Overview: Enterobacterial sRNA STnc450: a 58-nucleotide RNA from Kluyvera cryocrescens. The family's consensus secondary structure was predicted with CMfinder.
RNA sequence: CGCUAUACUAGCUUCUGAAAAUGCCGGCCCCUCCCCUUCGGGCCGGUUUUCAAUGUGU
Numbered sequence: 001c002g003c004u005a006u007a008c009u010a011g012c013u014u015c016u017g018a019a020a021a022u023g024c025c026g027g028c029c030c031c032u033c034c035c036c037u038u039c040g041g042g043c044c045g046g047u048u049u050u051c052a053a054u055g056u057g058u
Base pairs, nucleotide, nucleotide: 002012003011004010005009016052017051018050019049023047024046025045026044027043028042029041030040